[Rfam]
RNA sequence: CGAGGCCUCAAUUCCGUAGUGCAUUGCAGUGUAUUGUGACUCCUGCAAGCAGUGCGGAAGUGAGGCUGAGCC
Numbered sequence: 001c002g003a004g005g006c007c008u009c010a011a012u013u014c015c016g017u018a019g020u021g022c023a024u025u026g027c028a029g030u031g032u033a034u035u036g037u038g039a040c041u042c043c044u045g046c047a048a049g050c051a052g053u054g055c056g057g058a059a060g061u062g063a064g065g066c067u068g069a070g071c072c
Base pairs, nucleotide, nucleotide: 006065007064008063009062010061013058014057015056016055017054020051021050022049024048025047026046027045028044